[Rfam]
RNA: Bacterial RNase P class A
Organism: Clostridium oryzae
RNA sequence: CAAGUAAACCAGACAGUCGCUGCUCGUUUUACGAGGAGAGGAAAGUCCGAGCUCCAUAGGGCAGGGUGCUGGGUAACUCCCAGUGGAGGUGACUCCAAGGAAAGUGCAACAGAGAUAUACCGCCGUUUAACGGUAAGGGUGGAAAGGCGAGGUAAGAGCUCACCAGCGCAUUGGCGACUUUGCGGCUAUGUAAACCCCAUCUGGAGCAAGACCGAAUAGGGAAGUAUAUGGGGCUGCCCGUCCCGCUUCCGGGUGCGUCGCUGGAGCUUGACUGGUAACAGCAGGCCUAGAUAGAUGACUGUCAAAUACAGAACUCGGCUUACAGAUUUACUUGUCCA
Numbered sequence: 001c002a003a004g005u006a007a008a009c010c011a012g013a014c015a016g017u018c019g020c021u022g023c024u025c026g027u028u029u030u031a032c033g034a035g036g037a038g039a040g041g042a043a044a045g046u047c048c049g050a051g052c053u054c055c056a057u058a059g060g061g062c063a064g065g066g067u068g069c070u071g072g073g074u075a076a077c078u079c080c081c082a083g084u085g086g087a088g089g090u091g092a093c094u095c096c097a098a099g100g101a102a103a104g105u106g107c108a109a110c111a112g113a114g115a116u117a118u119a120c121c122g123c124c125g126u127u128u129a130a131c132g133g134u135a136a137g138g139g140u141g142g143a144a145a146g147g148c149g150a151g152g153u154a155a156g157a158g159c160u161c162a163c164c165a166g167c168g169c170a171u172u173g174g175c176g177a178c179u180u181u182g183c184g185g186c187u188a189u190g191u192a193a194a195c196c197c198c199a200u201c202u203g204g205a206g207c208a209a210g211a212c213c214g215a216a217u218a219g220g221g222a223a224g225u226a227u228a229u230g231g232g233g234c235u236g237c238c239c240g241u242c243c244c245g246c247u248u249c250c251g252g253g254u255g256c257g258u259c260g261c262u263g264g265a266g267c268u269u270g271a272c273u274g275g276u277a278a279c280a281g282c283a284g285g286c287c288u289a290g291a292u293a294g295a296u297g298a299c300u301g302u303c304a305a306a307u308a309c310a311g312a313a314c315u316c317g318g319c320u321u322a323c324a325g326a327u328u329u330a331c332u333u334g335u336c337c338a
Stems, first nucleotide, its partner, number of pairs: 001334008010325001012303007020038002023035005043321003047318005052206004059239004064202005069083005084098001085096004099197002104195002106191003120138002122134005146164002149161003166186001167184004173178001210259003220250006230244005266286005272281003